[Rfam]
RNA: U7 small nuclear RNA
RNA sequence: UAAUAUCACAACUUUUUUAAAAUUUGUCUAGUAGACUCUGUGGUUUUCACCAUAAAACGGCCCCA
Numbered sequence: 001u002a003a004u005a006u007c008a009c010a011a012c013u014u015u016u017u018u019a020a021a022a023u024u025u026g027u028c029u030a031g032u033a034g035a036c037u038c039u040g041u042g043g044u045u046u047u048c049a050c051c052a053u054a055a056a057a058c059g060g061c062c063c064c065a
Base pairs, nucleotide, nucleotide: 034062036060037056039054040053041052042051043050044049
Dot-bracket structure: .................................(.((.((((((....)))))).)...).)...